[Rfam]
RNA sequence: UUUGGAUCUAUGAUGAUUUGUAUAUUAUUACUGCGUUAUCUUUCUGUAAUUCCCAGUUAUGGGAUUGAAGAAGAUUUUUUUGUAACUGAGAUCCAAC
Numbered sequence: 001u002u003u004g005g006a007u008c009u010a011u012g013a014u015g016a017u018u019u020g021u022a023u024a025u026u027a028u029u030a031c032u033g034c035g036u037u038a039u040c041u042u043u044c045u046g047u048a049a050u051u052c053c054c055a056g057u058u059a060u061g062g063g064a065u066u067g068a069a070g071a072a073g074a075u076u077u078u079u080u081u082g083u084a085a086c087u088g089a090g091a092u093c094c095a096a097c
Stems, first nucleotide, its partner, number of pairs: 002096008
Small nucleolar RNA snoR27: a 97-nucleotide RNA sequence from Nicotiana tabacum. The literature on the family includes a 2001 paper in RNA by Brown et al., "Multiple snoRNA gene clusters from Arabidopsis". Its family is annotated with RNA processing and nucleolus in the Gene Ontology. The family is grouped with related families in Rfam's "snR68 clan". It is annotated as a C/D-box small nucleolar RNA.